Rfam assigns this 367-nucleotide RNA from Pannonibacter tanglangensis to the family "Alphaproteobacteria transfer-messenger RNA".
Gene Ontology term of the family: RNA catabolic process.
It is annotated as a non-coding RNA gene.
The base pairs follow the family's consensus structure, which is taken from published work.

RNA sequence: CCCCUUUCAAUCAGGUCGACCAGCUUCUAUAUUGAACGUGCCGGCUUGCCGGCUAUGGCGAUAAAUGGUCAGUGCAAUAAGCCUAUCGGACCCGGGGGCGGUACCCGGCGCCUCCACCCAAGCCCGCAGGACGAUCAUCGUCCGGCGGGUUUCGGCGGGGGCGAAACAGGAUCGACGAGGGUGUAAAGACUGUUCUUUCGCUCGGCAUGGUACCACCGACAUCGGACCAAACUUAUAGUUGCCAAUGACAACUAUGCUCAGGACGUCGCUCUCGCCGCGUAAUGCGGUGCGGGUUGUCCACUCAAAGCCCUGACGGGUAGCACCGUCAGGCGGGGUCCGGAGGCACCUGGCAACAGAAGCCUCCACU
Numbered sequence: 001c002c003c004c005u006u007u008c009a010a011u012c013a014g015g016u017c018g019a020c021c022a023g024c025u026u027c028u029a030u031a032u033u034g035a036a037c038g039u040g041c042c043g044g045c046u047u048g049c050c051g052g053c054u055a056u057g058g059c060g061a062u063a064a065a066u067g068g069u070c071a072g073u074g075c076a077a078u079a080a081g082c083c084u085a086u087c088g089g090a091c092c093c094g095g096g097g098g099c100g101g102u103a104c105c106c107g108g109c110g111c112c113u114c115c116a117c118c119c120a121a122g123c124c125c126g127c128a129g130g131a132c133g134a135u136c137a138u139c140g141u142c143c144g145g146c147g148g149g150u151u152u153c154g155g156c157g158g159g160g161g162c163g164a165a166a167c168a169g170g171a172u173c174g175a176c177g178a179g180g181g182u183g184u185a186a187a188g189a190c191u192g193u194u195c196u197u198u199c200g201c202u203c204g205g206c207a208u209g210g211u212a213c214c215a216c217c218g219a220c221a222u223c224g225g226a227c228c229a230a231a232c233u234u235a236u237a238g239u240u241g242c243c244a245a246u247g248a249c250a251a252c253u254a255u256g257c258u259c260a261g262g263a264c265g266u267c268g269c270u271c272u273c274g275c276c277g278c279g280u281a282a283u284g285c286g287g288u289g290c291g292g293g294u295u296g297u298c299c300a301c302u303c304a305a306a307g308c309c310c311u312g313a314c315g316g317g318u319a320g321c322a323c324c325g326u327c328a329g330g331c332g333g334g335g336u337c338c339g340g341a342g343g344c345a346c347c348u349g350g351c352a353a354c355a356g357a358a359g360c361c362u363c364c365a366c367u
Stems, first nucleotide, its partner, number of pairs: 040053005057202005067195002070192004082181003086178003092108005109163007203218003208229003213225002333348004339364006